[Rfam]
The family of this 164-nucleotide RNA sequence from Diversispora eburnea is "U12 minor spliceosomal RNA".
On this family, see Tarn and Steitz, Trends Biochem Sci 1997: "Pre-mRNA splicing: the discovery of a new spliceosome doubles the challenge".
Lineage of the source: Eukaryota > Glomeromycota > Glomeromycotina > Glomeromycetes > Diversispora.
Rfam classes the family as a spliceosomal small nuclear RNA.
The family is grouped with related families in Rfam's "U2 clan".
Gene Ontology terms of the family: mRNA branch site recognition, U12 snRNP and pre-mRNA branch point binding.
RNA sequence: UUGCCUCAAAUUAAUGAGUAAGGAUAAUAUAGGAUUUGGGUGAUACCUUAUCCGCCAUACGCAUUUCGUGUAUGUGUAGGUUCACCAAUAUUUGGCGGGGCACAGGUUGGUCAUGAGGAUGUUUCACCUACUUUGUGGAAUAUUCUCGUGAUGCUGACCUCCCG
Numbered sequence: 001u002u003g004c005c006u007c008a009a010a011u012u013a014a015u016g017a018g019u020a021a022g023g024a025u026a027a028u029a030u031a032g033g034a035u036u037u038g039g040g041u042g043a044u045a046c047c048u049u050a051u052c053c054g055c056c057a058u059a060c061g062c063a064u065u066u067c068g069u070g071u072a073u074g075u076g077u078a079g080g081u082u083c084a085c086c087a088a089u090a091u092u093u094g095g096c097g098g099g100g101c102a103c104a105g106g107u108u109g110g111u112c113a114u115g116a117g118g119a120u121g122u123u124u125c126a127c128c129u130a131c132u133u134u135g136u137g138g139a140a141u142a143u144u145c146u147c148g149u150g151a152u153g154c155u156g157a158c159c160u161c162c163c164g
Stems, first nucleotide, its partner, number of pairs: 004023003008019001032053004038047002056080001058078006098163003105159007114148002117145005123139005